The family of this 106-nucleotide RNA from Pan troglodytes is "Mitochondrial DNA control region secondary structure A". The base pairs follow the family's consensus structure, which is taken from published work.
RNA sequence: UUCUUUCAUGGGGAAGCAAAUUUGGGUACCACCCAAGUAUUGGCUAACCCACCAACAACCGCCAUGUAUAUCGUGCAUUACUGCCAGCCACCAUGAAUAUUAUAUA
Numbered sequence: 001u002u003c004u005u006u007c008a009u010g011g012g013g014a015a016g017c018a019a020a021u022u023u024g025g026g027u028a029c030c031a032c033c034c035a036a037g038u039a040u041u042g043g044c045u046a047a048c049c050c051a052c053c054a055a056c057a058a059c060c061g062c063c064a065u066g067u068a069u070a071u072c073g074u075g076c077a078u079u080a081c082u083g084c085c086a087g088c089c090a091c092c093a094u095g096a097a098u099a100u101u102a103u104a105u106a
Base pairs, nucleotide, nucleotide: 005097006096007095008094009093010092011091012089013088016084017083018082022036023035024034025033026032027031037059038058040055041054042053043052064078065077066076067075068074
Rfam classes the family as an antisense RNA. For this family Rfam cites "Evidence for variable selective pressures at a large secondary structure of the human mitochondrial DNA control region" (Pereira et al., Mol Biol Evol, 2008).